[Rfam]
RNA sequence: UGCAGCCCCGUCAAAUUCAGUCCCUGCCUCCUCCGUGGCGGGGCUGGCCAGCCUGCCACAGCAACUUCUGUAGUCCAUGAGCCUCCUGUCCCCUCCUGUGGGACCCCCGGGGAUAGAAUCACCACCACAGACAUUG
Numbered sequence: 001u002g003c004a005g006c007c008c009c010g011u012c013a014a015a016u017u018c019a020g021u022c023c024c025u026g027c028c029u030c031c032u033c034c035g036u037g038g039c040g041g042g043g044c045u046g047g048c049c050a051g052c053c054u055g056c057c058a059c060a061g062c063a064a065c066u067u068c069u070g071u072a073g074u075c076c077a078u079g080a081g082c083c084u085c086c087u088g089u090c091c092c093c094u095c096c097u098g099u100g101g102g103a104c105c106c107c108c109g110g111g112g113a114u115a116g117a118a119u120c121a122c123c124a125c126c127a128c129a130g131a132c133a134u135u136g
Stems, first nucleotide, its partner, number of pairs: 002056004018046004023042006070128002073125002082112002085110001087109002
Annotation: Rfam assigns this 136-nucleotide sequence from Charadrius vociferus to the family "Small nucleolar RNA SNORA5". ACA5 is a member of the H/ACA class of snoRNA that guide the sites of modification of uridines to pseudouridines. Its Rfam clan is "SNORA5 clan". Rfam classes the family as an H/ACA-box small nucleolar RNA.